[Rfam]
RNA: U11 spliceosomal RNA
Organism: Physeter macrocephalus
RNA sequence: AAAAAGGGCUUCUGUCAUGAGUGACACACGUGGGGCAACUCGUUUGUUCUUUGUGCGGAAUCGAAACCAAGAGAUUUCGGAAGCAUAAUUUUUUGAUAAUUGGGCAGCCAGUGAUCAUUAUUCCUGGUGCCCCA
Numbered sequence: 001a002a003a004a005a006g007g008g009c010u011u012c013u014g015u016c017a018u019g020a021g022u023g024a025c026a027c028a029c030g031u032g033g034g035g036c037a038a039c040u041c042g043u044u045u046g047u048u049c050u051u052u053g054u055g056c057g058g059a060a061u062c063g064a065a066a067c068c069a070a071g072a073g074a075u076u077u078c079g080g081a082a083g084c085a086u087a088a089u090u091u092u093u094u095g096a097u098a099a100u101u102g103g104g105c106a107g108c109c110a111g112u113g114a115u116c117a118u119u120a121u122u123c124c125u126g127g128u129g130c131c132c133c134a
Stems, first nucleotide, its partner, number of pairs: 008084005013026005027055004032050007056079007102132004107128005113123002